[Rfam]
RNA sequence: UAAGUAAGACAGGCGAUCGCGGCUGCAGGUGCCGAAAGGCCGCAGACGAGGAAAGUCCGGGCUUCACAGGGCAGGAUGCCGGAUAACGUCCGGUGGAGGUGACUCCAAGGCCAGUGCAACAGAAAUAAACCGCCCGGGCGGAGGGCUGAGAAGAAGACAGAGACGCUUCUUUUGAGCUCUCCGUCCGGGUAAGGGUGGAAAGGCAGUGUAAGAGACUACCGCCUCGCUGGUAACAGAGAGGGCACAUGUAAACCCCAUCCGAAGCAAGACCGGAUAGAAGCAAUGCGGCUGCCCGCCGCGCUUCAGGUUGGUCGCUCGAGCACAGCGGCGACGCUGUGCCUAGACAGAUGAUCGCCCACGACAUAACCCGGCUUAUCGUCUUGCUUAACAC
Numbered sequence: 001u002a003a004g005u006a007a008g009a010c011a012g013g014c015g016a017u018c019g020c021g022g023c024u025g026c027a028g029g030u031g032c033c034g035a036a037a038g039g040c041c042g043c044a045g046a047c048g049a050g051g052a053a054a055g056u057c058c059g060g061g062c063u064u065c066a067c068a069g070g071g072c073a074g075g076a077u078g079c080c081g082g083a084u085a086a087c088g089u090c091c092g093g094u095g096g097a098g099g100u101g102a103c104u105c106c107a108a109g110g111c112c113a114g115u116g117c118a119a120c121a122g123a124a125a126u127a128a129a130c131c132g133c134c135c136g137g138g139c140g141g142a143g144g145g146c147u148g149a150g151a152a153g154a155a156g157a158c159a160g161a162g163a164c165g166c167u168u169c170u171u172u173u174g175a176g177c178u179c180u181c182c183g184u185c186c187g188g189g190u191a192a193g194g195g196u197g198g199a200a201a202g203g204c205a206g207u208g209u210a211a212g213a214g215a216c217u218a219c220c221g222c223c224u225c226g227c228u229g230g231u232a233a234c235a236g237a238g239a240g241g242g243c244a245c246a247u248g249u250a251a252a253c254c255c256c257a258u259c260c261g262a263a264g265c266a267a268g269a270c271c272g273g274a275u276a277g278a279a280g281c282a283a284u285g286c287g288g289c290u291g292c293c294c295g296c297c298g299c300g301c302u303u304c305a306g307g308u309u310g311g312u313c314g315c316u317c318g319a320g321c322a323c324a325g326c327g328g329c330g331a332c333g334c335u336g337u338g339c340c341u342a343g344a345c346a347g348a349u350g351a352u353c354g355c356c357c358a359c360g361a362c363a364u365a366a367c368c369c370g371g372c373u374u375a376u377c378g379u380c381u382u383g384c385u386u387a388a389c390a391c
Stems, first nucleotide, its partner, number of pairs: 001387010011376001012356007020048002023045004028040001053374003057371005062264004069294004074260005079093005094108001095106004109255002114253002116249003130194002132190016202220002205217003221243001222241004227236003268313004278303004285299005320339008
Dot-bracket structure: ((((((((((((((((((.((.((((.(...........).)))).))....[[[.[[[[[((((...[[[[.((((((((((.....)))))(((((....)))).)((...(((((...........((((((((((((((((((...........................))))))))))))))))..)).......((.(((.......))).))(((((.(((....))).)))).)...)))..)))))))))))))...((((......((((...(((((.]]]])))))))))......))))......((((((((....))))))))..........)))))))..........]]]]]]]].).))))))))))....
Rfam assigns this 391-nucleotide RNA from Lachnoclostridium sp. An76 to the family "Bacterial RNase P class A". The source organism's lineage runs through Bacteria, Bacillota, Clostridia, Lachnospiraceae and Lachnoclostridium. Rfam describes the family as follows. Ribonuclease P (RNase P) is a ubiquitous endoribonuclease, found in archaea, bacteria and eukarya as well as chloroplasts and mitochondria. It scores 306 bits against the family's covariance model.